[Rfam]
RNA sequence: AUAUCGCACCAGGGGUGCUUGCUUCAAAAGAGCAGGCUGAGAAGAAACCCUUAUCACCUGAUCAGGUUAAUACCUGCGAAGGGAGUGUGCUUUUACCGUGUU
Numbered sequence: 001a002u003a004u005c006g007c008a009c010c011a012g013g014g015g016u017g018c019u020u021g022c023u024u025c026a027a028a029a030g031a032g033c034a035g036g037c038u039g040a041g042a043a044g045a046a047a048c049c050c051u052u053a054u055c056a057c058c059u060g061a062u063c064a065g066g067u068u069a070a071u072a073c074c075u076g077c078g079a080a081g082g083g084a085g086u087g088u089g090c091u092u093u094u095a096c097c098g099u100g101u102u
Base pairs, nucleotide, nucleotide: 006090007089008088009087011051012050013049014048016045017037018036019035020034021033022032023031024030057082058081059080063076064075065074066073

A member of the RNA family "TPP riboswitch aptamer (THI element)", 102 nucleotides long. For this family Rfam cites "Ligand binding and gene control characteristics of tandem riboswitches in Bacillus anthracis" (Welz and Breaker, RNA, 2007). The match comes from Rfam's covariance-model search (70 bits). Its family is annotated with thiamine pyrophosphate binding in the Gene Ontology.